[Rfam]
RNA sequence: CUCCCCGAAAUGCAUUUAGGUGCAGCGUUGUGUAAUGUGUGCUGGAGGUAGAGCUACCAAUAGGGCUAGGGGGCUUCACCGCCUACCAACCCCUGAUGAACUCCGAAUGCCAGUAUAACAGUAGCAGCAGUGAGGCAGUGGGUGCUAAGGUCCAUUGCCAAGAGGGGAACAACCCAGACCAUCAGCUAAGGUCCCCAAAUCCGGACUGAGUUGAAUGGAACGAUGUGGGGAUGCUAAGACAGCUAGGAUGUUGGCUUGGAAGCAGCCAUUCAUUUAAAGAGUGCGUAACAGCUCACUAGUCGAGCGUUCCUGCGCGGAAAAUACUCGGGCAUAAGUCCGGUACCGAAGCUAUGGAUUCCGUAAGGAGUGGUAGGGGAGCAUUGUAGUCAGCGCCGAAGGUGUACAGCGAUGUAUGCUGGAGCGGCUACAAAAGCAAAU
Numbered sequence: 001c002u003c004c005c006c007g008a009a010a011u012g013c014a015u016u017u018a019g020g021u022g023c024a025g026c027g028u029u030g031u032g033u034a035a036u037g038u039g040u041g042c043u044g045g046a047g048g049u050a051g052a053g054c055u056a057c058c059a060a061u062a063g064g065g066c067u068a069g070g071g072g073g074c075u076u077c078a079c080c081g082c083c084u085a086c087c088a089a090c091c092c093c094u095g096a097u098g099a100a101c102u103c104c105g106a107a108u109g110c111c112a113g114u115a116u117a118a119c120a121g122u123a124g125c126a127g128c129a130g131u132g133a134g135g136c137a138g139u140g141g142g143u144g145c146u147a148a149g150g151u152c153c154a155u156u157g158c159c160a161a162g163a164g165g166g167g168a169a170c171a172a173c174c175c176a177g178a179c180c181a182u183c184a185g186c187u188a189a190g191g192u193c194c195c196c197a198a199a200u201c202c203g204g205a206c207u208g209a210g211u212u213g214a215a216u217g218g219a220a221c222g223a224u225g226u227g228g229g230g231a232u233g234c235u236a237a238g239a240c241a242g243c244u245a246g247g248a249u250g251u252u253g254g255c256u257u258g259g260a261a262g263c264a265g266c267c268a269u270u271c272a273u274u275u276a277a278a279g280a281g282u283g284c285g286u287a288a289c290a291g292c293u294c295a296c297u298a299g300u301c302g303a304g305c306g307u308u309c310c311u312g313c314g315c316g317g318a319a320a321a322u323a324c325u326c327g328g329g330c331a332u333a334a335g336u337c338c339g340g341u342a343c344c345g346a347a348g349c350u351a352u353g354g355a356u357u358c359c360g361u362a363a364g365g366a367g368u369g370g371u372a373g374g375g376g377a378g379c380a381u382u383g384u385a386g387u388c389a390g391c392g393c394c395g396a397a398g399g400u401g402u403a404c405a406g407c408g409a410u411g412u413a414u415g416c417u418g419g420a421g422c423g424g425c426u427a428c429a430a431a432a433g434c435a436a437a438u
Base pairs, nucleotide, nucleotide: 001378002377003376004375005374006373011024012023013022014021015020026130027128028127029126030125031124036121038117039116040115041114042113043112044111045110051104052102053101058098059097062094063093064092065091069087070086071084072083073082074081134159135158136157137156138155139154140153141152142151143150164175165174166173179354180353181352182351184350185349186348190344191343192342199341201340202339203338204337205336206335221316222315225313226312227311228310229309230308231307232306233305234304242300243299244298245297246296248273249272250271253267254266255265274278279294283292284291355368356367357366358365359364379433381430382429383428384427385426386425387424390422391421398417399416400415401414402413403412404411405410

Shown here is a 438-nucleotide part of an RNA from Lewinella sp. W8, a member of the family "Bacterial large subunit ribosomal RNA".